The family of this 278-nucleotide RNA sequence from Candidatus Magnetomorum sp. HK-1 is "Group II catalytic intron D1-D4-6". The base pairs follow the family's consensus structure. About the family: Group II introns are found in rRNA, tRNA and mRNA of organelles in fungi, plants and protists, and also in mRNA in bacteria. The match comes from Rfam's covariance-model search (72 bits). On this family, see Chu et al., EMBO J 2001: "Control of branch-site choice by a group II intron". NCBI's taxonomy places the organism under Bacteria, Pseudomonadati, Thermodesulfobacteriota, Desulfobacterales, Candidatus Magnetomorum.

RNA sequence: AAAGUCCCACCUACUCACAGUAAACCAUCUGCAGGGCAGUAGUGAACUCCACAUGCAUUUCCAGCAAUGGGGUGUGUGAAGCUGGAGGAAUCAAGGAUUCAGGCCGCGCUAUUGAGCCUCGAAAAAUUUGCUUCAUUGUGGUCUAUUAAGAUAAUCUAUCGUUAGUACAAUUUUAUUGUAUUGACGUUAGAAAAAGCCGACACUAUGCGCAUAGUGGAAGGCUAAAGUCUAUAAAUCGUUUUGGUUAGAUUUGUAGGCACCACCGUGGUCGGAGAACG
Numbered sequence: 001a002a003a004g005u006c007c008c009a010c011c012u013a014c015u016c017a018c019a020g021u022a023a024a025c026c027a028u029c030u031g032c033a034g035g036g037c038a039g040u041a042g043u044g045a046a047c048u049c050c051a052c053a054u055g056c057a058u059u060u061c062c063a064g065c066a067a068u069g070g071g072g073u074g075u076g077u078g079a080a081g082c083u084g085g086a087g088g089a090a091u092c093a094a095g096g097a098u099u100c101a102g103g104c105c106g107c108g109c110u111a112u113u114g115a116g117c118c119u120c121g122a123a124a125a126a127u128u129u130g131c132u133u134c135a136u137u138g139u140g141g142u143c144u145a146u147u148a149a150g151a152u153a154a155u156c157u158a159u160c161g162u163u164a165g166u167a168c169a170a171u172u173u174u175a176u177u178g179u180a181u182u183g184a185c186g187u188u189a190g191a192a193a194a195a196g197c198c199g200a201c202a203c204u205a206u207g208c209g210c211a212u213a214g215u216g217g218a219a220g221g222c223u224a225a226a227g228u229c230u231a232u233a234a235a236u237c238g239u240u241u242u243g244g245u246u247a248g249a250u251u252u253g254u255a256g257g258c259a260c261c262a263c264c265g266u267g268g269u270c271g272g273a274g275a276a277c278g
Base pairs, nucleotide, nucleotide: 012038014036015035016034020032021031022030024246026244040093042091043090047087048086049085052078053077054076055075056074057073058072059071061070062069063068113272114270116269117268118267120265121264138263139262140261141260142259196222197221198220201216202215203214204213227258228257229256230255231254232253233252234251235250236249237248